[Rfam]
RNA sequence: UAAUGCCAUGAGGUAUCUGAUGCUCAGUCUGAAUAAAUGGCUGGGGCGUCUCGUUAGAUUGGCAGAAAGCGAAGGAAACAGGCCUUGCGACACCGGUUGCUCUUCUUCUAUGAGCUUCCAGUUACUUUUUUCCUGCUCACAUUU
Numbered sequence: 001u002a003a004u005g006c007c008a009u010g011a012g013g014u015a016u017c018u019g020a021u022g023c024u025c026a027g028u029c030u031g032a033a034u035a036a037a038u039g040g041c042u043g044g045g046g047c048g049u050c051u052c053g054u055u056a057g058a059u060u061g062g063c064a065g066a067a068a069g070c071g072a073a074g075g076a077a078a079c080a081g082g083c084c085u086u087g088c089g090a091c092a093c094c095g096g097u098u099g100c101u102c103u104u105c106u107u108c109u110a111u112g113a114g115c116u117u118c119c120a121g122u123u124a125c126u127u128u129u130u131u132c133c134u135g136c137u138c139a140c141a142u143u144u
Stems, first nucleotide, its partner, number of pairs: 004064005009058001019050005024044006031038001077137001079135003092122002095119002099115003
Small nucleolar RNA F1/F2/snoR5a: a 144-nucleotide RNA from Asparagus officinalis. Rfam links the family to the GO terms nucleolus and RNA processing. The base pairs follow the family's consensus structure, which was predicted with PFOLD. Rfam 15.1 lists 325 matches to the family in 97 species. Rfam classes the family as an H/ACA-box small nucleolar RNA. Rfam's curators write: This family contains F1, F2 and snoR5a sequences, all of which are members of the the H/ACA class of snoRNA that guide the sites of modification of uridines to pseudouridines.